[Rfam]
RNA sequence: UGAUCUUUCCCUUUGGCCAUAGCAGAAGCAUUCAUGUCAUGGCCCCUGUCAGAUUCCUUUGAAUCUGCGAAUUCUGCU
Dot-bracket structure: ..............[[[[..((((((((...........)]]]].....(((((((....)))))))....)))))))
RNA: Mammalian CPEB3 ribozyme